Nucleotides: 148
Base pairs, nucleotide, nucleotide: 001147002146003145004144008033009032010031034142035141036140037139038138039137044054045053055127056126057125063104064103065102066101067100068099069098107121108120109119110118
Number, partner (000 for none) and nucleotide at each position: 001147c002146g003145c004144c005000g006000a007000g008033u009032c010031c011000a012000g013000a014000c015000c016000g017000g018000g019000g020000g021000g022000a023000c024000g025000g026000u027000c028000g029000a030000c031010g032009g033008a034142g035141c036140c037139g038138g039137g040000g041000a042000a043000c044054c045053a046000c047000a048000c049000c050000a051000u052000c053045u054044g055127g056126g057125g058000u059000g060000a061000a062000u063104c064103c065102c066101c067100u068099g069098c070000g071000a072000g073000g074000c075000a076000g077000g078000u079000c080000a081000c082000g083000a084000g085000a086000g087000u088000g089000g090000c091000g092000u093000g094000u095000g096000g097000a098069g099068c100067a101066g102065g103064g104063g105000u106000a107121g108120g109119g110118c111000a112000u113000g114000u115000c116000g117000u118110g119109c120108c121107c122000g123000a124000a125057c126056c127055c128000g129000u130000c131000a132000g133000c134000u135000c136000a137039c138038c139037c140036g141035g142034u143000a144004g145003g146002c147001g148000u